The record is a 98-nucleotide RNA sequence from Firmicutes bacterium CAG:313, which matches "TPP riboswitch aptamer (THI element)" in Rfam. A search with the family's covariance model found it, with a score of 57 bits.
RNA sequence: GAUAUCCUAAUGGGGAGCAUCUGCUGAGAGGUUAUUUAGUUAACGACCCAAAACCUGAUCUAGAUAAUGCUAGCGUAGGGAAUAGUAUGCAAUAUGUU
Number, nucleotide and partner (000 for none) at each position: 001g000002a000003u000004a000005u000006c000007c085008u084009a083010a000011u050012g049013g048014g047015g000016a000017g024018c023019a000020u000021c000022u000023g018024c017025u000026g000027a000028g000029a000030g000031g044032u043033u042034a041035u000036u000037u000038a000039g000040u000041u034042a033043a032044c031045g000046a000047c014048c013049c012050a011051a000052a000053a000054c079055c078056u077057g076058a000059u000060c073061u072062a071063g070064a000065u000066a000067a000068u000069g000070c063071u062072a061073g060074c000075g000076u057077a056078g055079g054080g000081a000082a000083u009084a008085g007086u000087a000088u000089g000090c000091a000092a000093u000094a000095u000096g000097u000098u000